[Rfam]
RNA sequence: UGGACAAAUUAUCUUUUUCGACUGUAUUCACGGCGUGAAACAGGGGAUUACACUAUUUUUAAACGGAAAGUGAAUCAACUAACAUAAUAGACUCCU
Numbered sequence: 001u002g003g004a005c006a007a008a009u010u011a012u013c014u015u016u017u018u019c020g021a022c023u024g025u026a027u028u029c030a031c032g033g034c035g036u037g038a039a040a041c042a043g044g045g046g047a048u049u050a051c052a053c054u055a056u057u058u059u060u061a062a063a064c065g066g067a068a069a070g071u072g073a074a075u076c077a078a079c080u081a082a083c084a085u086a087a088u089a090g091a092c093u094c095c096u
Stems, first nucleotide, its partner, number of pairs: 002095003009090004015084001017082002020080001023077002026075006034065003037059004042054002
Background:
Shown here is a 96-nucleotide sequence from Nicotiana attenuata, a member of the family "MIR6152 microRNA precursor family". A search with the family's covariance model found it, with a score of 92 bits.